[Rfam]
RNA sequence: CCUGGCCGAUGAUGAUACCCUAACUGACUGCAGACUGUUGGAUGAAGCUUGCGGAUAUGGGACUGAGGCUGGAA
Numbered sequence: 001c002c003u004g005g006c007c008g009a010u011g012a013u014g015a016u017a018c019c020c021u022a023a024c025u026g027a028c029u030g031c032a033g034a035c036u037g038u039u040g041g042a043u044g045a046a047g048c049u050u051g052c053g054g055a056u057a058u059g060g061g062a063c064u065g066a067g068g069c070u071g072g073a074a
Stems, first nucleotide, its partner, number of pairs: 002072004
Dot-bracket structure: .((((...............................................................))))..
Background: This 74-nucleotide RNA sequence from Anguilla anguilla belongs to the Rfam family "Small nucleolar RNA SNORD99". Lineage of the source: Eukaryota > Deuterostomia > Vertebrata > Teleostomi > Anguilla. The literature on the family includes a 2001 paper in EMBO J by Huttenhofer et al., "RNomics: an experimental approach that identifies 201 candidates for novel, small, non-messenger RNAs in mouse". By type it is a C/D-box small nucleolar RNA. Rfam 15.1 lists 673 matches to the family in 613 species.